[Rfam]
RNA sequence: GAAGCUCGCUAGGCCGUCGCUGGUGCAAUCUGGGAAACCAGGCACUGGAGGAACGUCCGGACUGCGUAGGACAGCGUAAGAGGUAACACCUCUCCACCGUGAGGUGAGGAUUAGAGCAACAGAGACGAGCCGAUUUAGUUCGGGUGAAACGGGCAAUCUCUACGCGCAGCAAUACCAAGUAGGCCAGCGUUGAUGUGGUUCCGCAGAGUUGGCGGGUAGGUAGCACCGAGCCGAGUGGGUAACCCUCGGCCCAGAUUAAUGACGGUCACGCCGUGGGCAACCACGGUGCACAGAAUCCGGCGUAUCGGCGAGCUUCACAC
Numbered sequence: 001g002a003a004g005c006u007c008g009c010u011a012g013g014c015c016g017u018c019g020c021u022g023g024u025g026c027a028a029u030c031u032g033g034g035a036a037a038c039c040a041g042g043c044a045c046u047g048g049a050g051g052a053a054c055g056u057c058c059g060g061a062c063u064g065c066g067u068a069g070g071a072c073a074g075c076g077u078a079a080g081a082g083g084u085a086a087c088a089c090c091u092c093u094c095c096a097c098c099g100u101g102a103g104g105u106g107a108g109g110a111u112u113a114g115a116g117c118a119a120c121a122g123a124g125a126c127g128a129g130c131c132g133a134u135u136u137a138g139u140u141c142g143g144g145u146g147a148a149a150c151g152g153g154c155a156a157u158c159u160c161u162a163c164g165c166g167c168a169g170c171a172a173u174a175c176c177a178a179g180u181a182g183g184c185c186a187g188c189g190u191u192g193a194u195g196u197g198g199u200u201c202c203g204c205a206g207a208g209u210u211g212g213c214g215g216g217u218a219g220g221u222a223g224c225a226c227c228g229a230g231c232c233g234a235g236u237g238g239g240u241a242a243c244c245c246u247c248g249g250c251c252c253a254g255a256u257u258a259a260u261g262a263c264g265g266u267c268a269c270g271c272c273g274u275g276g277g278c279a280a281c282c283a284c285g286g287u288g289c290a291c292a293g294a295a296u297c298c299g300g301c302g303u304a305u306c307g308g309c310g311a312g313c314u315u316c317a318c319a320c
Stems, first nucleotide, its partner, number of pairs: 001316010011305001012267007020048007053303003057300005062169004069200002074165005079093005094108001095106004109160002114158002116154002130143004173222004183213006194205004230250006237244002
Rfam assigns this 320-nucleotide sequence from Limnohabitans sp. Jir61 to the family "Bacterial RNase P class A". By type it is a ribozyme. Gene Ontology terms of the family: ribonuclease P activity, tRNA processing and dimeric ribonuclease P complex. The match comes from Rfam's covariance-model search (203 bits). The base pairs follow the family's consensus structure, which is taken from published work. From the family's description: Ribonuclease P (RNase P) is a ubiquitous endoribonuclease, found in archaea, bacteria and eukarya as well as chloroplasts and mitochondria.